[Rfam]
Shown here is a 102-nucleotide sequence from Orenia marismortui, a member of the family "Purine riboswitch aptamer". From the family's description: Riboswitches are metabolite binding domains within certain messenger RNAs that serve as precision sensors for their corresponding targets. Lineage of the source: Bacteria > Bacillota > Clostridia > Halobacteroidaceae > Orenia.

RNA sequence: AAUAAAUAUCGAAUUAGUACUCGUAUAAUGUCGAGAAUAAGGCUCGGACGUUUCUACCAGAUAGCCGUAAACUAUCUGACUACGAGUGAAAGUGUACCUAGG
Numbered sequence: 001a002a003u004a005a006a007u008a009u010c011g012a013a014u015u016a017g018u019a020c021u022c023g024u025a026u027a028a029u030g031u032c033g034a035g036a037a038u039a040a041g042g043c044u045c046g047g048a049c050g051u052u053u054c055u056a057c058c059a060g061a062u063a064g065c066c067g068u069a070a071a072c073u074a075u076c077u078g079a080c081u082a083c084g085a086g087u088g089a090a091a092g093u094g095u096a097c098c099u100a101g102g
Stems, first nucleotide, its partner, number of pairs: 018088008031047005058078007